[Rfam]
RNA sequence: GGGUGCGUCGGCAUCGGGCCGCCGCAGGUAGACAUCGGGUGGUCGGGCCGCCACUC
Numbered sequence: 001g002g003g004u005g006c007g008u009c010g011g012c013a014u015c016g017g018g019c020c021g022c023c024g025c026a027g028g029u030a031g032a033c034a035u036c037g038g039g040u041g042g043u044c045g046g047g048c049c050g051c052c053a054c055u056c
Stems, first nucleotide, its partner, number of pairs: 005025003009021004037056007

Rfam assigns this 56-nucleotide RNA to the family "nhaA-I RNA".
From the family's description: Acidobacteria, Alphaproteobacteria, Betaproteobacteria and Gammaproteobacteria, Verrucomicrobia, cand. division NC10.
The family's RNA type in Rfam is riboswitch.